[Rfam]
RNA sequence: GGGGACGCGUCUUAGAAUCCCCGCAGCCCGAUGGUGUUAAUAGCUCUUUCCAUGGCCGGGAAGAGUGGUUAGUGAAUC
Dot-bracket structure: (((((............)))))..............(((((.(((((((((......))))))))).)))))......
Numbered sequence: 001g002g003g004g005a006c007g008c009g010u011c012u013u014a015g016a017a018u019c020c021c022c023g024c025a026g027c028c029c030g031a032u033g034g035u036g037u038u039a040a041u042a043g044c045u046c047u048u049u050c051c052a053u054g055g056c057c058g059g060g061a062a063g064a065g066u067g068g069u070u071a072g073u074g075a076a077u078c
Stems, first nucleotide, its partner, number of pairs: 001022005037072005043066009